[Rfam]
RNA sequence: GCCGUCCGGAUGCCUGGUCGACAGGAGUGGAUCGGCAGGAGUGGAGGACCCGAGCACAACGGGCCGACCGGGCAACCGGACGGCCCUCGGGGUGAAGCCGCAUCACGCGGCCGGGCAACUUCGCCAGCCCGAACCCGACAGGUCAUCCUUCACAGGCGGCUGACGAAGGGUUG
Dot-bracket structure: (((.(((..............................)))((((((....((((...............................))))(((.....((((.....))))..((((..........))))...)))...........)))))).)))................
The family of this 173-nucleotide sequence from Streptomyces sp. ADI93-02 is "c-di-AMP riboswitch aptamer (ydaO/yuaA leader)". The match comes from Rfam's covariance-model search (42 bits). The organism belongs to Streptomyces, within Bacteria.